[Rfam]
RNA sequence: GGAUAGAUGAUGACAAGACAUCUUUGAGGACGGUCAUCGACCUGUAACUAUGCCAAUCUGAUCUCC
Numbered sequence: 001g002g003a004u005a006g007a008u009g010a011u012g013a014c015a016a017g018a019c020a021u022c023u024u025u026g027a028g029g030a031c032g033g034u035c036a037u038c039g040a041c042c043u044g045u046a047a048c049u050a051u052g053c054c055a056a057u058c059u060g061a062u063c064u065c066c
Stems, first nucleotide, its partner, number of pairs: 001066003005062001